Rfam assigns this 78-nucleotide RNA from Podarcis muralis to the family "Small nucleolar RNA SNORD79". On this family, see Galardi et al., Mol Cell Biol 2002: "Purified box C/D snoRNPs are able to reproduce site-specific 2'-O-methylation of target RNA in vitro".
RNA sequence: UACUGUUGAUGAUGAAAUUGUAUAAAACAAUGGGAAUCUCUCUGAAAAGAAGUGAAGAGAAUUUGCACUGAAACAGUA
Numbered sequence: 001u002a003c004u005g006u007u008g009a010u011g012a013u014g015a016a017a018u019u020g021u022a023u024a025a026a027a028c029a030a031u032g033g034g035a036a037u038c039u040c041u042c043u044g045a046a047a048a049g050a051a052g053u054g055a056a057g058a059g060a061a062u063u064u065g066c067a068c069u070g071a072a073a074c075a076g077u078a
Stems, first nucleotide, its partner, number of pairs: 001078007
Overview
NCBI's taxonomy places the organism under Eukaryota, Eumetazoa, Amniota, Unidentata, Podarcis. snoRNA U79 or Z22 is found in intron 7 of the gas5 gene in humans and is also present in mice.